Description
Shown here is a 169-nucleotide RNA from Caldalkalibacillus thermarum, a member of the family "FMN riboswitch aptamer (RFN element)". Rfam 15.1 lists 6,230 matches to the family in 5,120 species. Pairs were carried over by alignment from the consensus structure, which is taken from published work.
[Rfam]
RNA sequence: GGAUUCCUUCGGGGCAGGGUGGAAUUCCCCGACCGGCGGUAUUAGAUGAUGACUGUUUUUAAAUCAACAUUUCAAAACAGCAUCAUCUAGAGCCCGUGACCCGCGACAAGCGGUGGAUCUGGUGAGAGGCCAGAGCCGACAGUGACAGUCUGGAUGGGAGAAGGAAGAA
Numbered sequence: 001g002g003a004u005u006c007c008u009u010c011g012g013g014g015c016a017g018g019g020u021g022g023a024a025u026u027c028c029c030c031g032a033c034c035g036g037c038g039g040u041a042u043u044a045g046a047u048g049a050u051g052a053c054u055g056u057u058u059u060u061a062a063a064u065c066a067a068c069a070u071u072u073c074a075a076a077a078c079a080g081c082a083u084c085a086u087c088u089a090g091a092g093c094c095c096g097u098g099a100c101c102c103g104c105g106a107c108a109a110g111c112g113g114u115g116g117a118u119c120u121g122g123u124g125a126g127a128g129g130c131c132a133g134a135g136c137c138g139a140c141a142g143u144g145a146c147a148g149u150c151u152g153g154a155u156g157g158g159a160g161a162a163g164g165a166a167g168a169a
Stems, first nucleotide, its partner, number of pairs: 004166007017030003032149002034138002036097004101113002118134005140152003